Description
Bacterial RNase P class A: a 370-nucleotide RNA sequence from Buchnera aphidicola. Pairs were carried over by alignment from the consensus structure, which is taken from published work. From the family's description: Ribonuclease P (RNase P) is a ubiquitous endoribonuclease, found in archaea, bacteria and eukarya as well as chloroplasts and mitochondria.
[Rfam]
RNA sequence: GAAGUUGACUAAACAGUCGCUGUUUAGUUUUAAAACUAAAGAGAGGAAAGUCCGGGCUCCAUAGAGCAGGGUGCCAGGUAACACCUGGAAAGCGCAAGCUUAUGACAAGUGCAACAGAAAAAAAACCACCUUAUUUUCUUUUUUUAACUGCAGAUAAUAGGGAAAGGGUGAAAAGGUGUGGUAAGAGCACACCGCAUAAUUGGCAACAAUUUAUGGCAAUGUAAACUCCACCUGGAGCAAAGCCAAAUAUAGGUUAUUAAUAUUGCUCGUAUUUUAAAAAACCUGGGUGGGCUGCUUGAAUUAGUAAGUAAUUACUAAUCUAGAUGAAUGACUGUUAAAACAGAACCCGGCUUAUAGGUCAACUUCUUAA
Numbered sequence: 001g002a003a004g005u006u007g008a009c010u011a012a013a014c015a016g017u018c019g020c021u022g023u024u025u026a027g028u029u030u031u032a033a034a035a036c037u038a039a040a041g042a043g044a045g046g047a048a049a050g051u052c053c054g055g056g057c058u059c060c061a062u063a064g065a066g067c068a069g070g071g072u073g074c075c076a077g078g079u080a081a082c083a084c085c086u087g088g089a090a091a092g093c094g095c096a097a098g099c100u101u102a103u104g105a106c107a108a109g110u111g112c113a114a115c116a117g118a119a120a121a122a123a124a125a126c127c128a129c130c131u132u133a134u135u136u137u138c139u140u141u142u143u144u145u146a147a148c149u150g151c152a153g154a155u156a157a158u159a160g161g162g163a164a165a166g167g168g169u170g171a172a173a174a175g176g177u178g179u180g181g182u183a184a185g186a187g188c189a190c191a192c193c194g195c196a197u198a199a200u201u202g203g204c205a206a207c208a209a210u211u212u213a214u215g216g217c218a219a220u221g222u223a224a225a226c227u228c229c230a231c232c233u234g235g236a237g238c239a240a241a242g243c244c245a246a247a248u249a250u251a252g253g254u255u256a257u258u259a260a261u262a263u264u265g266c267u268c269g270u271a272u273u274u275u276a277a278a279a280a281a282c283c284u285g286g287g288u289g290g291g292c293u294g295c296u297u298g299a300a301u302u303a304g305u306a307a308g309u310a311a312u313u314a315c316u317a318a319u320c321u322a323g324a325u326g327a328a329u330g331a332c333u334g335u336u337a338a339a340a341c342a343g344a345a346c347c348c349g350g351c352u353u354a355u356a357g358g359u360c361a362a363c364u365u366c367u368u369a370a
Stems, first nucleotide, its partner, number of pairs: 001366010011355001012336007020043002023040006048353003052350005057237004064268004069233005074088005089103001090101004104228002109226002111222003126167002129162007175193006194217001195215005200209003241293004251284005259273005300319008
Gene Ontology terms of the family: ribonuclease P activity, dimeric ribonuclease P complex and tRNA processing.